[Rfam]
A member of the RNA family "Group II catalytic intron D1-D4-1" from a Thermoflexales bacterium, 82 nucleotides long. Rfam links the family to the GO term Group II intron splicing. A reference for the family is Bonen and Vogel (2001), "The ins and outs of group II introns", Trends Genet. The match comes from Rfam's covariance-model search (70 bits).

RNA sequence: CAACCCUGUUCGGAAGAACAGACUGAGAUAGCAGAAGUCAGCAGAGGCCAUAGUACUGCAGCCGUCAAACUGCGGGAAGGGC
Numbered sequence: 001c002a003a004c005c006c007u008g009u010u011c012g013g014a015a016g017a018a019c020a021g022a023c024u025g026a027g028a029u030a031g032c033a034g035a036a037g038u039c040a041g042c043a044g045a046g047g048c049c050a051u052a053g054u055a056c057u058g059c060a061g062c063c064g065u066c067a068a069a070c071u072g073c074g075g076g077a078a079g080g081g082c
Stems, first nucleotide, its partner, number of pairs: 001025002006021006038045002047082003056075006